Shown here is an 87-nucleotide RNA from Paenibacillus uliginis, a member of the family "Group II catalytic intron D1-D4-1".
From the family's description: Group II introns are found in rRNA, tRNA and mRNA of organelles in fungi, plants and protists, and also in mRNA in bacteria.
Lineage of the source: Bacteria > Bacillota > Bacilli > Paenibacillaceae > Paenibacillus uliginis.

RNA sequence: UAACCGUAGCCGGAAGGUUACGCUGAACUGACAGGAGUCAGCAGAGGUCAUAGUACGGGAGUAAGGGACGCCAGAAACCGGAAGGAC
Numbered sequence: 001u002a003a004c005c006g007u008a009g010c011c012g013g014a015a016g017g018u019u020a021c022g023c024u025g026a027a028c029u030g031a032c033a034g035g036a037g038u039c040a041g042c043a044g045a046g047g048u049c050a051u052a053g054u055a056c057g058g059g060a061g062u063a064a065g066g067g068a069c070g071c072c073a074g075a076a077a078c079c080g081g082a083a084g085g086a087c
Stems, first nucleotide, its partner, number of pairs: 001025002005022007038045002047087003056080003